[Rfam]
RNA: epsC RNA
RNA sequence: AGGAAAUGUCUCCUGCUCCUUUAUCACUGGAGGCACUCGGCCAUGCUGUGGGUCAGCGGACCUUAGACGUUAAUCGUCAGGGGUGUGGCGUGAGGAUGGGUUCAAUGCCCG
Numbered sequence: 001a002g003g004a005a006a007u008g009u010c011u012c013c014u015g016c017u018c019c020u021u022u023a024u025c026a027c028u029g030g031a032g033g034c035a036c037u038c039g040g041c042c043a044u045g046c047u048g049u050g051g052g053u054c055a056g057c058g059g060a061c062c063u064u065a066g067a068c069g070u071u072a073a074u075c076g077u078c079a080g081g082g083g084u085g086u087g088g089c090g091u092g093a094g095g096a097u098g099g100g101u102u103c104a105a106u107g108c109c110c111g
Stems, first nucleotide, its partner, number of pairs: 001020004007035007036094004040089008050063005066078004097111005